Rfam assigns this 130-nucleotide RNA from Carlito syrichta to the family "Small nucleolar RNA SNORA38". Gene Ontology terms of the family: Cajal body, nucleolus and RNA processing. Taxonomically the source falls in Carlito (Eukaryota, Metazoa, Vertebrata, Amniota).

RNA sequence: CCCUCCUACAAAGGCAUGUUUAUAGUUCCUUUCCUUUGGACAGGUAAGAAUUGGAGGCAGAAAAAUGUGGAUAUGGAGACAUCUAGGGCAAUCUGUUCCCUACAGGUCCAAAAUCAACCAUCCCACAUGG
Numbered sequence: 001c002c003c004u005c006c007u008a009c010a011a012a013g014g015c016a017u018g019u020u021u022a023u024a025g026u027u028c029c030u031u032u033c034c035u036u037u038g039g040a041c042a043g044g045u046a047a048g049a050a051u052u053g054g055a056g057g058c059a060g061a062a063a064a065a066u067g068u069g070g071a072u073a074u075g076g077a078g079a080c081a082u083c084u085a086g087g088g089c090a091a092u093c094u095g096u097u098c099c100c101u102a103c104a105g106g107u108c109c110a111a112a113a114u115c116a117a118c119c120a121u122c123c124c125a126c127a128u129g130g
Base pairs, nucleotide, nucleotide: 002057003056004055005054006053015044017042018041019040020039021038024030025029069123070122071121091107092106093105094104095103096102

A search with the family's covariance model found it, with a score of 117 bits. Rfam classes the family as an H/ACA-box small nucleolar RNA. Rfam 15.1 lists 628 matches to the family in 149 species.